A member of the RNA family "Glycine riboswitch aptamer" from Paenibacillus uliginis, 116 nucleotides long.
RNA sequence: AUGACGAUGGACGGGAGAGACCGCAACGCCAAUUAAGGUGGCGGCACCGAAGGAGCAAUUCGUUACACCUGCCGGUUAACGAGUAAUCUCUCAGGUAAAAGUACCGCUGUCUGACG
Number, nucleotide and partner (000 for none) at each position: 001a000002u000003g000004a000005c000006g111007a110008u109009g108010g107011a000012c106013g105014g104015g000016a000017g000018a000019g000020a000021c044022c043023g042024c041025a000026a000027c000028g000029c000030c000031a000032a000033u000034u000035a000036a000037g000038g000039u000040g000041g024042c023043g022044g021045c000046a096047c095048c094049g092050a091051a000052g000053g090054a089055g088056c000057a000058a000059u083060u082061c081062g080063u079064u078065a077066c000067a000068c000069c000070u000071g000072c000073c000074g000075g000076u000077u065078a064079a063080c062081g061082a060083g059084u000085a000086a000087u000088c055089u054090c053091u050092c049093a000094g048095g047096u046097a000098a000099a000100a000101g000102u000103a000104c014105c013106g012107c010108u009109g008110u007111c006112u000113g000114a000115c000116g000
Lineage of the source: Bacteria > Bacillota > Bacilli > Paenibacillus > Paenibacillus uliginis. The match comes from Rfam's covariance-model search (58 bits).